[Rfam]
RNA sequence: UAUGACCGCAUGGGAGAGCCCGGCUGAAGCAUCAGGCUUCGAUCCGGCGCCGACGGAGCAACCCCCCAGGAAACUCUCAGGCAACAGGAACCGUGUGGUCUUG
Numbered sequence: 001u002a003u004g005a006c007c008g009c010a011u012g013g014g015a016g017a018g019c020c021c022g023g024c025u026g027a028a029g030c031a032u033c034a035g036g037c038u039u040c041g042a043u044c045c046g047g048c049g050c051c052g053a054c055g056g057a058g059c060a061a062c063c064c065c066c067c068a069g070g071a072a073a074c075u076c077u078c079a080g081g082c083a084a085c086a087g088g089a090a091c092c093g094u095g096u097g098g099u100c101u102u103g
Stems, first nucleotide, its partner, number of pairs: 006098008020047004049082003052078002056076003062069001
Rfam assigns this 103-nucleotide RNA from Novosphingobium fuchskuhlense to the family "Glycine riboswitch aptamer". It scores 58 bits against the family's covariance model. Rfam's curators write: This family represents the bacterial glycine riboswitch. NCBI's taxonomy places the organism under Bacteria, Pseudomonadota, Alphaproteobacteria, Sphingomonadaceae, Novosphingobium.